This 303-nucleotide RNA from Ipomoea nil belongs to the Rfam family "Plant signal recognition particle RNA".
The family's consensus secondary structure is taken from published work.
It scores 240 bits against the family's covariance model.
[Rfam]
RNA sequence: GCUGGGCUUGGUAGCAUGAGCCUAUAACCCGAGUGGGAGCAUUAAGAUGGUGGAACAGUUGAGCUUGCCGUGAAGGCUGGGCUUGGUAUGCUAUCUUCUGGCCUGCCCAUUCCAAGUGGUGAGUUGAUGUAGGAGUCUCCACGAAGGUGGAGGCUUCUCUGUCUUUAGAACGGAGGGUACCGCGUGAGGCUGGCUUCACAGAGCAGCGAAGACCUCCUCCUCUCUGCAGUGGAAGGAUAACGGGCCAGUGCAUCUUCAGUCCACUAGCGCCUGAUUGGCUGUCCAAAUUGAACCACCAUCUUU
Numbered sequence: 001g002c003u004g005g006g007c008u009u010g011g012u013a014g015c016a017u018g019a020g021c022c023u024a025u026a027a028c029c030c031g032a033g034u035g036g037g038a039g040c041a042u043u044a045a046g047a048u049g050g051u052g053g054a055a056c057a058g059u060u061g062a063g064c065u066u067g068c069c070g071u072g073a074a075g076g077c078u079g080g081g082c083u084u085g086g087u088a089u090g091c092u093a094u095c096u097u098c099u100g101g102c103c104u105g106c107c108c109a110u111u112c113c114a115a116g117u118g119g120u121g122a123g124u125u126g127a128u129g130u131a132g133g134a135g136u137c138u139c140c141a142c143g144a145a146g147g148u149g150g151a152g153g154c155u156u157c158u159c160u161g162u163c164u165u166u167a168g169a170a171c172g173g174a175g176g177g178u179a180c181c182g183c184g185u186g187a188g189g190c191u192g193g194c195u196u197c198a199c200a201g202a203g204c205a206g207c208g209a210a211g212a213c214c215u216c217c218u219c220c221u222c223u224c225u226g227c228a229g230u231g232g233a234a235g236g237a238u239a240a241c242g243g244g245c246c247a248g249u250g251c252a253u254c255u256u257c258a259g260u261c262c263a264c265u266a267g268c269g270c271c272u273g274a275u276u277g278g279c280u281g282u283c284c285a286a287a288u289u290g291a292a293c294c295a296c297c298a299u300c301u302u303u
Base pairs, nucleotide, nucleotide: 001040002039003038004023005022006021007020008019009018010017028037029036030035044302045301046300047299048298049297050296051295052294053293056290057289059287060286063282064281069277070276074272075271076270077269079262080261081260082259083258085256086255088253089252090251092250093249098248099247100246101245102244103243104242105241107236108235110234111233112232113231114230116227117226118225119224121222122221123220126163127162128161129160131158132157133156134155135154136153137152138151139150140149141148142147165170172217173216174215175214176213183208184207185206190201191200192199